[Rfam]
RNA sequence: AAUCUACUUCAGGGCGGGGCGAAAUUCCCCACCGGUGGUGAUAGCGUUUCGCUUAAGCCCACGAGCGCUUUUUGGUCCUUCACUCCUUGAGCCAAAAAGGUCUAGCAGAUUUGGUUAAAUUCCAAAGCCGACGGUUACAGUCCGGAUGAAAGAAGUAACAA
Numbered sequence: 001a002a003u004c005u006a007c008u009u010c011a012g013g014g015c016g017g018g019g020c021g022a023a024a025u026u027c028c029c030c031a032c033c034g035g036u037g038g039u040g041a042u043a044g045c046g047u048u049u050c051g052c053u054u055a056a057g058c059c060c061a062c063g064a065g066c067g068c069u070u071u072u073u074g075g076u077c078c079u080u081c082a083c084u085c086c087u088u089g090a091g092c093c094a095a096a097a098a099g100g101u102c103u104a105g106c107a108g109a110u111u112u113g114g115u116u117a118a119a120u121u122c123c124a125a126a127g128c129c130g131a132c133g134g135u136u137a138c139a140g141u142c143c144g145g146a147u148g149a150a151a152g153a154a155g156u157a158a159c160a161a
Base pairs, nucleotide, nucleotide: 005157006156007155008154009153010152017029018028019027031141032140033130034129035062036061037060038059057128058127065106066105110126111125112124113123114122132144133143134142
FMN riboswitch aptamer (RFN element): a 161-nucleotide RNA sequence from Vibrio sp. qd031. Rfam's curators write: The RFN element is a highly conserved domain that is found frequently in the 5'-untranslated regions of prokaryotic mRNAs that encode for flavin mononucleotide (FMN) biosynthesis and transport proteins. This element is a metabolite-dependent riboswitch that directly binds FMN in the absence of proteins. In Bacillus subtilis, the riboswitch most likely controls gene expression by causing premature transcription termination within the 5' untranslated region of the ribDEAHT operon and precluding access to the ribosome-binding site of ypaA mRNA.The FMN riboswitch structure, reported in present an FMN-bound six-stem junction, adopts a butterfly-like scaffold, stapled together by opposingly directed but nearly identically folded peripheral domains. The base pairs follow the family's consensus structure, which is taken from published work. It scores 111 bits against the family's covariance model.